Small nucleolar RNA SNORA65: a 127-nucleotide sequence. Rfam classes the family as an H/ACA-box small nucleolar RNA. Rfam 15.1 lists 1,089 matches to the family in 619 species. The literature on the family includes a 2001 paper in EMBO J by Huttenhofer et al., "RNomics: an experimental approach that identifies 201 candidates for novel, small, non-messenger RNAs in mouse". Rfam's curators put it in the seed alignment. The base pairs follow the family's consensus structure, which was predicted with RNAalifold.
RNA sequence: CCCGCCACUGUGCUUGUCUGUAAGAGUGACCGUGUACUGUCCAGAGGAAGCUCAGAGUGACCCAGCUCUAGGAAGCAGGACUGGUCAAUUCAGUGACUAGCCCUGUGCCAAAAGGCCUGGAACAUGG
Numbered sequence: 001c002c003c004g005c006c007a008c009u010g011u012g013c014u015u016g017u018c019u020g021u022a023a024g025a026g027u028g029a030c031c032g033u034g035u036a037c038u039g040u041c042c043a044g045a046g047g048a049a050g051c052u053c054a055g056a057g058u059g060a061c062c063c064a065g066c067u068c069u070a071g072g073a074a075g076c077a078g079g080a081c082u083g084g085u086c087a088a089u090u091c092a093g094u095g096a097c098u099a100g101c102c103c104u105g106u107g108c109c110a111a112a113a114g115g116c117c118u119g120g121a122a123c124a125u126g127g
Stems, first nucleotide, its partner, number of pairs: 005047002008044003018034001019032001020030001021028002062120004066115002069112001071109002076105004081100001084097003